Listeria sRNA rli28: a 183-nucleotide RNA from Listeria booriae. It is annotated as a small RNA. The match comes from Rfam's covariance-model search (80 bits). The family's consensus secondary structure was predicted with RNAalifold.
[Rfam]
RNA sequence: UUUUAUUUGUUAUAAUGGAUGAAGAGAAGUUUUGGGACGGAGGCUAAUCCAUUACGAAGGGGUGAUGCCAAUGUAUCUUCUUUUUGUCGCUCCUAGAAAGGAACAGCAGAUGAGCAUAUACGAAGCACUGACAUUAGCAAUUUCUUUUGCAAUGCUAGUUCUUUAUAUUGAUCGAGACAAAGA
Numbered sequence: 001u002u003u004u005a006u007u008u009g010u011u012a013u014a015a016u017g018g019a020u021g022a023a024g025a026g027a028a029g030u031u032u033u034g035g036g037a038c039g040g041a042g043g044c045u046a047a048u049c050c051a052u053u054a055c056g057a058a059g060g061g062g063u064g065a066u067g068c069c070a071a072u073g074u075a076u077c078u079u080c081u082u083u084u085u086g087u088c089g090c091u092c093c094u095a096g097a098a099a100g101g102a103a104c105a106g107c108a109g110a111u112g113a114g115c116a117u118a119u120a121c122g123a124a125g126c127a128c129u130g131a132c133a134u135u136a137g138c139a140a141u142u143u144c145u146u147u148u149g150c151a152a153u154g155c156u157a158g159u160u161c162u163u164u165a166u167a168u169u170g171a172u173c174g175a176g177a178c179a180a181a182g183a
Base pairs, nucleotide, nucleotide: 040153043150044149058094059093060092061091062090063089064088065087067085112132117127119125158178159177160176162175165172